[Rfam]
Rfam assigns this 121-nucleotide sequence from Nannospalax galili to the family "Small nucleolar RNA SNORA22".
It scores 86 bits against the family's covariance model.
The family's consensus secondary structure was predicted with RNAfold.
Rfam classes the family as an H/ACA-box small nucleolar RNA.
The family has 31 seed sequences and 883 matches in Rfam 15.1.
Rfam describes the family as follows. ACA22 is a member of the H/ACA class of snoRNA that guide the sites of modification of uridines to pseudouridines.
RNA sequence: UUACACAGUGAACACCCACUCUCUUGGCCUUGACUCUGUGCUAGAGUAACACACACGUCCUUUUCCUCUGCAUUGAAAGGAGUACUGUCCUUUUAAGUGUAUUCAGAAAAUGAGUACAUCA
Numbered sequence: 001u002u003a004c005a006c007a008g009u010g011a012a013c014a015c016c017c018a019c020u021c022u023c024u025u026g027g028c029c030u031u032g033a034c035u036c037u038g039u040g041c042u043a044g045a046g047u048a049a050c051a052c053a054c055a056c057g058u059c060c061u062u063u064u065c066c067u068c069u070g071c072a073u074u075g076a077a078a079g080g081a082g083u084a085c086u087g088u089c090c091u092u093u094u095a096a097g098u099g100u101a102u103u104c105a106g107a108a109a110a111u112g113a114g115u116a117c118a119u120c121a
Stems, first nucleotide, its partner, number of pairs: 004040005010035001013032002016027003043061002046058002067107004071099004075094007
NCBI's taxonomy places the organism under Eukaryota, Euteleostomi, Myomorpha, Muroidea, Nannospalax.